[Rfam]
RNA sequence: UUAUAAGAUUUUUUAGCUAUUGAACUCCUCUGUCACUCUCUUAAAGAGAACAAAUUUGUUCUUUGACAGAGAGGGAUAAAUGACAAAACAGUUCAAUAGCUAAAGCGUCCUAAAAG
Numbered sequence: 001u002u003a004u005a006a007g008a009u010u011u012u013u014u015a016g017c018u019a020u021u022g023a024a025c026u027c028c029u030c031u032g033u034c035a036c037u038c039u040c041u042u043a044a045a046g047a048g049a050a051c052a053a054a055u056u057u058g059u060u061c062u063u064u065g066a067c068a069g070a071g072a073g074g075g076a077u078a079a080a081u082g083a084c085a086a087a088a089c090a091g092u093u094c095a096a097u098a099g100c101u102a103a104a105g106c107g108u109c110c111u112a113a114a115a116g
Base pairs, nucleotide, nucleotide: 001115002114004112005111011105012104013103014102015101016100017099018098019097020096021095022094023093024092025091026090029070030069031068032067033066034065035064049060050059051058052057
mir-8517 microRNA precursor family: a 116-nucleotide sequence from Plutella xylostella. Taxonomically the source falls in Plutella (Eukaryota, Pancrustacea, Dicondylia, Endopterygota).